[Rfam]
RNA sequence: UAACACACGCGGCUCGCACCAGAAUAUCGGUGUCAGAUGGUGCUUUGAAUGCACUUGGUUAUGCCGGUAGGGGCAAAUUGAGAUGGCCGCAAUCUCUUGCCCCUACCGGUUUGGCUAA
Numbered sequence: 001u002a003a004c005a006c007a008c009g010c011g012g013c014u015c016g017c018a019c020c021a022g023a024a025u026a027u028c029g030g031u032g033u034c035a036g037a038u039g040g041u042g043c044u045u046u047g048a049a050u051g052c053a054c055u056u057g058g059u060u061a062u063g064c065c066g067g068u069a070g071g072g073g074c075a076a077a078u079u080g081a082g083a084u085g086g087c088c089g090c091a092a093u094c095u096c097u098u099g100c101c102c103c104u105a106c107c108g109g110u111u112u113g114g115c116u117a118a
Base pairs, nucleotide, nucleotide: 009090010089011088012087013086016033017032018031019030020029040054041053042052043051055118056117057116058115059114060113061112064109065108066107067106068105069104070103071102072101073100080096081095082094083093084092
The record is a 118-nucleotide RNA from Cellvibrio sp. PSBB023, which matches "RT-12 RNA" in Rfam. Pairs were carried over by alignment from the consensus structure, which is taken from published work. The organism belongs to Cellvibrio, within Bacteria. It scores 75 bits against the family's covariance model.